[Rfam]
RNA sequence: CACCCACCGUGGCUGGCGCCGUAGGCGCCCGUGACCGGAAUUGGAACAGGGGCCGGUACAGGCGCACGGUGGGGGAGCAGAGGGCCGGCAGUCGGGGGACUGUCCGGCCCUGUUUUU
Numbered sequence: 001c002a003c004c005c006a007c008c009g010u011g012g013c014u015g016g017c018g019c020c021g022u023a024g025g026c027g028c029c030c031g032u033g034a035c036c037g038g039a040a041u042u043g044g045a046a047c048a049g050g051g052g053c054c055g056g057u058a059c060a061g062g063c064g065c066a067c068g069g070u071g072g073g074g075g076a077g078c079a080g081a082g083g084g085c086c087g088g089c090a091g092u093c094g095g096g097g098g099a100c101u102g103u104c105c106g107g108c109c110c111u112g113u114u115u116u117u
Base pairs, nucleotide, nucleotide: 003073004072005071006070007069008068009067010066011065012063013062015029016028017027018026033059034057035056036055037054038053041050042049081111082110083109084108085107086106087105088104089102090101091100092099093098